The record is a 262-nucleotide RNA from Carbonactinospora thermoautotrophica, which matches "raiA RNA" in Rfam. It is annotated as a riboswitch. The base pairs follow the family's consensus structure, which is taken from published work. A search with the family's covariance model found it, with a score of 142 bits.
RNA sequence: CCCGUCCGGGUCCGUGGUUGCGCCUGGUGGGGCCUCGGGGGCCGCCCCGAGCCGCCCACCGGGCUAGCCGAUGCCAGCCGCAGGCGAAGCGGCCCACGUAAGGCGACUUCUCGUCGUCCGAUCACGGUGCGGCUUAGAGGUAAGUCCUGCCUCGUCGAAGGUCCAGAUGUCCUUCGAUCCGGGAGAAGGGGAGUAGUGGCGGUAGCGCUGCGAGACCCUCAGCAGGCGGAUGUGGGGUCGAAGACCAGGUCGGCCGGACGGG
Numbered sequence: 001c002c003c004g005u006c007c008g009g010g011u012c013c014g015u016g017g018u019u020g021c022g023c024c025u026g027g028u029g030g031g032g033c034c035u036c037g038g039g040g041g042c043c044g045c046c047c048c049g050a051g052c053c054g055c056c057c058a059c060c061g062g063g064c065u066a067g068c069c070g071a072u073g074c075c076a077g078c079c080g081c082a083g084g085c086g087a088a089g090c091g092g093c094c095c096a097c098g099u100a101a102g103g104c105g106a107c108u109u110c111u112c113g114u115c116g117u118c119c120g121a122u123c124a125c126g127g128u129g130c131g132g133c134u135u136a137g138a139g140g141u142a143a144g145u146c147c148u149g150c151c152u153c154g155u156c157g158a159a160g161g162u163c164c165a166g167a168u169g170u171c172c173u174u175c176g177a178u179c180c181g182g183g184a185g186a187a188g189g190g191g192a193g194u195a196g197u198g199g200c201g202g203u204a205g206c207g208c209u210g211c212g213a214g215a216c217c218c219u220c221a222g223c224a225g226g227c228g229g230a231u232g233u234g235g236g237g238u239c240g241a242a243g244a245c246c247a248g249g250u251c252g253g254c255c256g257g258a259c260g261g262g
Base pairs, nucleotide, nucleotide: 001262002261003260004259005258006257007256008255009254012253013252014251015247016246017245018244019243071233072232073231074084076134077133078132079131080130081129082128093127094126098122102118103117104116105115106114107113125240146226147225148224149223150222151183152182153181154180187219188218189217190216196211197210199208200207201206